[Rfam]
RNA sequence: AUUCGUUUUGUUGUGUAUCCUCGAUUGAUGUGGCCUCAUAUGCUUCA
Numbered sequence: 001a002u003u004c005g006u007u008u009u010g011u012u013g014u015g016u017a018u019c020c021u022c023g024a025u026u027g028a029u030g031u032g033g034c035c036u037c038a039u040a041u042g043c044u045u046c047a
Base pairs, nucleotide, nucleotide: 010025011024012023013022032044033043034042
This 47-nucleotide sequence from Oryza brachyantha belongs to the Rfam family "Plastid-ycf3 group II-D1 intron".
Its family is annotated with Group II intron splicing in the Gene Ontology.
Plastid rpl16 is a non-coding RNA (ncRNA) recognised in plastids. It was recognised in and intronic region of a ribosome rpl16 gene.
The family has 385 seed sequences and 1,488 matches in Rfam 15.1.
On this family, see Richter et al., Plant Commun 2023: "Retrograde signaling in plants: A critical review focusing on the GUN pathway and beyond".
Lineage of the source: Eukaryota > Tracheophyta > Spermatophyta > Oryzeae > Oryza.